[Rfam]
This 86-nucleotide sequence from Didymella glomerata belongs to the Rfam family "tRNA".
The base pairs follow the family's consensus structure, which is taken from published work.
A search with the family's covariance model found it, with a score of 50 bits.
Taxonomically the source falls in Didymella (Eukaryota, Opisthokonta, Ascomycota, Pleosporomycetidae).
RNA sequence: UCUUCGAUAGUAUAGUGGUCAGUAUUUCUGCUUGUCAUCCGCAGGACAGCUCGCAGGAGGCCGGGGUUCGAUUCCCCGUCGGAGAG
Dot-bracket structure: (((((((..((((........)))).(((((.....................)))))....(((((.......)))))))))))).